The family of this 61-nucleotide sequence is "GP20-b RNA". By type it is a cis-regulatory element.
[Rfam]
RNA sequence: UGUCAGCCCGGUUAGACGUAAAACGGCCGGCUCAUGUGGUGAGACCACGUAAAAAAUCGUA
Numbered sequence: 001u002g003u004c005a006g007c008c009c010g011g012u013u014a015g016a017c018g019u020a021a022a023a024c025g026g027c028c029g030g031c032u033c034a035u036g037u038g039g040u041g042a043g044a045c046c047a048c049g050u051a052a053a054a055a056a057u058c059g060u061a
Stems, first nucleotide, its partner, number of pairs: 001018004010028004035049004